[Rfam]
The family of this 297-nucleotide RNA from Hermetia illucens is "Metazoan signal recognition particle RNA". The base pairs follow the family's consensus structure, which is taken from published work. A search with the family's covariance model found it, with a score of 247 bits. Rfam classes the family as a non-coding RNA gene. Rfam's curators write: The signal recognition particle (SRP) is a universally conserved ribonucleoprotein. It is involved in the co-translational targeting of proteins to membranes.

RNA sequence: ACUGGAAGCGUGGCGUCUUCUGUAAUCCGGCUACUCGGAGGUCAGGUUGUAGGAUGAUUUGAGGUCAGGAGUUCUGUGUAGUGUGUCAGAUCAUGUUGACGGAGCGUCCGCACUAAGCUUGCCAUCAAUAUGGGUGCCAGGGAGGAGUCUCAGGCAUUCAGGUUGGCUAAGGAGGGAUGAACCGGGCCAGGGGUGAAAACCAGCAGCCAAGAGUCCCCGUGGUAAGCAGUAGUGGGAUAGCGCUCCGGAGUGGGAUGCCAUUAUCAGCCUGGCCAAUAAAGUCAGACUGCAAUCUUU
Number, nucleotide and partner (000 for none) at each position: 001a042002c041003u040004g021005g020006a019007a018008g017009c000010g000011u000012g000013g000014c000015g000016u000017c008018u007019u006020c005021u004022g000023u000024a000025a000026u039027c038028c037029g000030g000031c000032u000033a000034c000035u000036c000037g028038g027039a026040g003041g002042u001043c000044a295045g294046g293047u292048u291049g290050u289051a288052g287053g000054a000055u284056g283057a282058u281059u280060u279061g000062a000063g274064g273065u272066c271067a270068g269069g268070a000071g000072u000073u000074c267075u266076g265077u000078g264079u263080a262081g261082u260083g000084u000085g259086u000087c257088a256089g000090a000091u253092c252093a251094u250095g000096u248097u000098g000099a000100c247101g246102g245103a244104g243105c242106g241107u240108c236109c235110g000111c234112a233113c232114u231115a230116a000117g227118c226119u225120u224121g223122c222123c221124a220125u219126c165127a164128a163129u162130a000131u160132g159133g158134g157135u156136g155137c154138c153139a000140g151141g150142g149143a148144g000145g000146a000147g000148u143149c142150u141151c140152a000153g138154g137155c136156a135157u134158u133159c132160a131161g000162g129163u128164u127165g126166g000167c171168u000169a000170a000171g167172g000173a000174g217175g216176g215177a214178u213179g000180a000181a000182c000183c000184g000185g208186g207187c206188c000189a000190g000191g000192g201193g200194u199195g000196a000197a000198a000199a194200c193201c192202a000203g000204c000205a000206g187207c186208c185209a000210a000211g000212a000213g178214u177215c176216c175217c174218c000219g125220u124221g123222g122223u121224a120225a119226g118227c117228a000229g000230u115231a114232g113233u112234g111235g109236g108237a000238u000239a000240g107241c106242g105243c104244u103245c102246c101247g100248g096249a000250g094251u093252g092253g091254g000255a000256u088257g087258c000259c085260a082261u081262u080263a079264u078265c076266a075267g074268c069269c068270u067271g066272g065273c064274c063275a000276a000277u000278a000279a060280a059281g058282u057283c056284a055285g000286a000287c052288u051289g050290c049291a048292a047293u046294c045295u044296u000297u000